A member of the RNA family "Plastid-ccsA-ndhD-1 3UTR RNA" from Turnera subulata, 57 nucleotides long. Plastid-ccsA-ndhD-1 is a non-coding RNA (ncRNA) recognised in plastids. It was found in the three prime untranslated region (3UTR) of ccsA and ndhD genes, its 3UTR location suggests a role in transcript maturation. For this family Rfam cites "Retrograde signaling in plants: A critical review focusing on the GUN pathway and beyond" (Richter et al., Plant Commun, 2023). The family has 488 seed sequences and 1,322 matches in Rfam 15.1. Clan: Plastid-ccsA_ndhD 3UTR RNA clan. The family's RNA type in Rfam is cis-regulatory element.
[Rfam]
RNA sequence: CAUUUGUGAGAACUUUUUGAAUCUAAGUCAUGUAGUGAUUCAAAAAGUUCUCAACAA
Numbered sequence: 001c002a003u004u005u006g007u008g009a010g011a012a013c014u015u016u017u018u019g020a021a022u023c024u025a026a027g028u029c030a031u032g033u034a035g036u037g038a039u040u041c042a043a044a045a046a047g048u049u050c051u052c053a054a055c056a057a
Base pairs, nucleotide, nucleotide: 007053008052009051010050011049012048013047014046015045016044017043018042019041020040021039022038023037025036